[Rfam]
RNA: Archaeal large subunit ribosomal RNA, nucleotides 666 to 925
RNA sequence: GAGGUCCUGCUAGUGGCGAGCCUAAGAGGUUAAACCUCGAAGGCGUAGGGAAACCGAGAGCCCGAAGCGAAAGCGAGGGGCUGGGUUCGCCAGAGCCUGAAGUCACUGGCAGGAAACUAGAAACCGGGCGAUCUAGACCAGGCCAGGUCGAAGCCGGGGGAAACCUCGGUGGAGGACCGAAUAGGGGUUCUGACGUGCAAUUCGUUCCCUUGAGCUUGGUCUAGGGGCAAAAGGCCAAUCUAGCCCGGUGAUAUCUAGUU
Numbered sequence: 001g002a003g004g005u006c007c008u009g010c011u012a013g014u015g016g017c018g019a020g021c022c023u024a025a026g027a028g029g030u031u032a033a034a035c036c037u038c039g040a041a042g043g044c045g046u047a048g049g050g051a052a053a054c055c056g057a058g059a060g061c062c063c064g065a066a067g068c069g070a071a072a073g074c075g076a077g078g079g080g081c082u083g084g085g086u087u088c089g090c091c092a093g094a095g096c097c098u099g100a101a102g103u104c105a106c107u108g109g110c111a112g113g114a115a116a117c118u119a120g121a122a123a124c125c126g127g128g129c130g131a132u133c134u135a136g137a138c139c140a141g142g143c144c145a146g147g148u149c150g151a152a153g154c155c156g157g158g159g160g161a162a163a164c165c166u167c168g169g170u171g172g173a174g175g176a177c178c179g180a181a182u183a184g185g186g187g188u189u190c191u192g193a194c195g196u197g198c199a200a201u202u203c204g205u206u207c208c209c210u211u212g213a214g215c216u217u218g219g220u221c222u223a224g225g226g227g228c229a230a231a232a233g234g235c236c237a238a239u240c241u242a243g244c245c246c247g248g249u250g251a252u253a254u255c256u257a258g259u260u
Stems, first nucleotide, its partner, number of pairs: 005114013020044004026038004048055002060081004067074002084097004117258002120255001124248006133224011144212001146178004153170007184209004190204001192203002226236003